[Rfam]
RNA sequence: AGGACAGAUUACUGUAUUCGACUGUAUUCACCAGGGGAUUACACUGUAUUUAAACGGAAAGUAAAUCAAUUAACAUAAUAGACUCCU
Number, nucleotide and partner (000 for none) at each position: 001a000002g086003g085004a084005c000006a000007g000008a000009u081010u080011a079012c000013u077014g076015u075016a000017u073018u072019c000020g071021a070022c000023u068024g067025u000026a066027u065028u064029c000030a062031c061032c056033a045034g044035g000036g000037g000038a000039u000040u000041a000042c000043a000044c034045u033046g000047u000048a000049u000050u000051u000052a000053a000054a000055c000056g032057g000058a000059a000060a000061g031062u030063a000064a028065a027066u026067c024068a023069a000070u021071u020072a018073a017074c000075a015076u014077a013078a000079u011080a010081g009082a000083c000084u004085c003086c002087u000

This 87-nucleotide RNA from Nicotiana attenuata belongs to the Rfam family "MIR6152 microRNA precursor family".
It scores 63 bits against the family's covariance model.
Taxonomically the source falls in Nicotiana (Eukaryota, Tracheophyta, Magnoliopsida, Mesangiospermae).